RNA: ALIL pseudoknot
RNA sequence: CGCGUAUUUCGCGCAGGCGGAGCUCGACCGCCCGUUCCGGAAAUGAUCGCGUUCAUUGCAGAUCAUCGAGAGGUCUUCGGGGUCGAGCCGAUCUGUCGCGUGCUGCCGAUCGCCCCC
Numbered sequence: 001c002g003c004g005u006a007u008u009u010c011g012c013g014c015a016g017g018c019g020g021a022g023c024u025c026g027a028c029c030g031c032c033c034g035u036u037c038c039g040g041a042a043a044u045g046a047u048c049g050c051g052u053u054c055a056u057u058g059c060a061g062a063u064c065a066u067c068g069a070g071a072g073g074u075c076u077u078c079g080g081g082g083u084c085g086a087g088c089c090g091a092u093c094u095g096u097c098g099c100g101u102g103c104u105g106c107c108g109a110u111c112g113c114c115c116c117c
Base pairs, nucleotide, nucleotide: 016032017031018030019029020028079116080115081114082113089112090111092109093108095106096105098103